[Rfam]
RNA sequence: GGGUUAGGAGUACUGCCUUUAUGCGGUGCGUUGGGCUUUAUGCCCACCUGACUC
Dot-bracket structure: ((((((((.(((((((......)))))))..(((((.....)))))))))))))